[Rfam]
Nucleotides: 123
Stems, first nucleotide, its partner, number of pairs: 002122008011113015027098008036089003041083006
Number, partner (000 for none) and nucleotide at each position: 001000a002122u003121a004120a005119u006118a007117u008116a009115a010000a011113a012112a013111c014110c015109g016108u017107u018106u019105c020104u021103u022102a023101a024100c025099u026000u027098u028097u029096a030095a031094c032093u033092a034091a035000a036089a037088a038087a039000a040000c041083u042082a043081a044080g045079a046078a047000c048000c049000u050000a051000c052000u053000c054000u055000u056000a057000a058000a059000u060000a061000a062000g063000a064000g065000u066000u067000u068000u069000a070000a071000g072000a073000g074000a075000c076000g077000g078046u079045u080044c081043u082042u083041a084000a085000u086000u087038u088037u089036u090000c091034u092033u093032a094031g095030u096029u097028a098027a099025a100024g101023u102022u103021a104020a105019g106018a107017g108016a109015c110014g111013g112012u113011u114000c115009u116008u117007a118006u119005a120004u121003u122002a123000c

This 123-nucleotide RNA sequence from Brassica cretica belongs to the Rfam family "MIR9563 microRNA precursor family".
The family's consensus secondary structure was predicted with RNAalifold.
Taxonomically the source falls in Brassica (Eukaryota, Streptophyta, Streptophytina, Brassicaceae).
Rfam links the family to the GO terms miRNA-mediated post-transcriptional gene silencing and RISC complex.